[Rfam]
The record is a 135-nucleotide RNA from Pseudomonas savastanoi, which matches "Pseudomonas rpsL leader" in Rfam. NCBI's taxonomy places the organism under Bacteria, Pseudomonadales, Pseudomonadaceae, Pseudomonas savastanoi, Pseudomonas savastanoi pv. phaseolicola.
Nucleotides: 135
Base pairs, nucleotide, nucleotide: 004018005017006016007015008014009013022053023052024051026049027048028047029046030045031044034041035040061082062081063080064079065078066077067076068075069074102132104130105129106128107127108117109116110115
Number, partner (000 for none) and nucleotide at each position: 001000u002000g003000u004018c005017g006016g007015g008014g009013c010000u011000u012000u013009g014008u015007c016006u017005u018004g019000a020000c021000u022053g023052g024051g025000g026049a027048c028047g029046g030045g031044a032000u033000c034041c035040u036000c037000u038000u039000u040035a041034g042000a043000c044031u045030c046029u047028u048027g049026u050000a051024c052023c053022c054000c055000u056000a057000a058000a059000u060000u061082u062081g063080g064079c065078g066077g067076g068075g069074c070000u071000u072000g073000u074069g075068c076067c077066c078065u079064g080063u081062c082061a083000u084000u085000u086000g087000c088000u089000u090000u091000u092000c093000u094000u095000g096000u097000a098000a099000g100000a101000c102132a103000a104130u105129a106128g107127c108117g109116u110115c111000g112000c113000a114000a115110g116109a117108c118000a119000a120000c121000a122000g123000u124000g125000g126000a127107g128106c129105u130104a131000g132102u133000a134000g135000a
The sequence is in the family's curated seed alignment. Rfam classes the family as a cis-regulatory leader.